[Rfam]
RNA sequence: CCGCUCACCAGCGCUCGGUCUUCUCCACAUGGUCCUGACCUGCUCUCUGUGAGCCAGAGAAACAGCACUGGUUUGGGGGUGUCCCAUUCGAGUGAACGUGGGAGACCACAGUUUCCAGGACAACA
Numbered sequence: 001c002c003g004c005u006c007a008c009c010a011g012c013g014c015u016c017g018g019u020c021u022u023c024u025c026c027a028c029a030u031g032g033u034c035c036u037g038a039c040c041u042g043c044u045c046u047c048u049g050u051g052a053g054c055c056a057g058a059g060a061a062a063c064a065g066c067a068c069u070g071g072u073u074u075g076g077g078g079g080u081g082u083c084c085c086a087u088u089c090g091a092g093u094g095a096a097c098g099u100g101g102g103a104g105a106c107c108a109c110a111g112u113u114u115c116c117a118g119g120a121c122a123a124c125a
Base pairs, nucleotide, nucleotide: 003054004053005052006051007050008049013043014042017040018039019038020037025032026031065121068118069117070116071115073111074110075109078107079106080105082103083102084101085100087096088095089094
Description:
A member of the RNA family "Small Cajal body specific RNA 23" from Camelus dromedarius, 125 nucleotides long. For this family Rfam cites "Cajal body-specific small nuclear RNAs: a novel class of 2'-O-methylation and pseudouridylation guide RNAs" (Darzacq et al., EMBO J, 2002). About the family: scaRNAs are a specific class of small nuclear RNAs which localise to the Cajal bodies and guide the modification of RNA polymerase II transcribed spliceosomal RNAs U1, U2, U4, U5 and U12. The family has 18 seed sequences and 399 matches in Rfam 15.1. The family's consensus secondary structure was predicted with RNAfold. NCBI's taxonomy places the organism under Eukaryota, Metazoa, Craniata, Gnathostomata, Camelus.